[Rfam]
RNA sequence: UGACACAGUGAAGACUUGCUGCGAAGCUACAAACGGAGAAAUGGUCUUUUGGGUUUUUGACUCAUAAGUCCGCUUCUCAACAACGCUUUGUUGGCUUUGGGAAAAGUCCCGGACCUGAGGCAGAAAGUGUCAGUCGUAAAGAGGUACGUCUUUCUCGAGUUUAAUGGCGAAGAAGCUACAUGCUGAGCUGGACGAAGGAAGGACAUUUCUGUCGAAGCAAAGUAAUGCAAGAAGGCAUCUGCGGCUGAUGUCCAACUCAACGGGGCUUACUCUCACUGUGUC
Numbered sequence: 001u002g003a004c005a006c007a008g009u010g011a012a013g014a015c016u017u018g019c020u021g022c023g024a025a026g027c028u029a030c031a032a033a034c035g036g037a038g039a040a041a042u043g044g045u046c047u048u049u050u051g052g053g054u055u056u057u058u059g060a061c062u063c064a065u066a067a068g069u070c071c072g073c074u075u076c077u078c079a080a081c082a083a084c085g086c087u088u089u090g091u092u093g094g095c096u097u098u099g100g101g102a103a104a105a106g107u108c109c110c111g112g113a114c115c116u117g118a119g120g121c122a123g124a125a126a127g128u129g130u131c132a133g134u135c136g137u138a139a140a141g142a143g144g145u146a147c148g149u150c151u152u153u154c155u156c157g158a159g160u161u162u163a164a165u166g167g168c169g170a171a172g173a174a175g176c177u178a179c180a181u182g183c184u185g186a187g188c189u190g191g192a193c194g195a196a197g198g199a200a201g202g203a204c205a206u207u208u209c210u211g212u213c214g215a216a217g218c219a220a221a222g223u224a225a226u227g228c229a230a231g232a233a234g235g236c237a238u239c240u241g242c243g244g245c246u247g248a249u250g251u252c253c254a255a256c257u258c259a260a261c262g263g264g265g266c267u268u269a270c271u272c273u274c275a276c277u278g279u280g281u282c
Base pairs, nucleotide, nucleotide: 002282003281004280005279006278007277008276009275010274011273015231016230017229018228019227022099023098024097025096026095027094036078037077038076039075040074042072043071044070104268105267106266108265109263110262119131120130121129122128143204145202149199150198151197152196153195154194155192165190166189167188168187175183176182234252235251236250237249238248239247
RNA: RNase MRP
Organism: Desmophyllum pertusum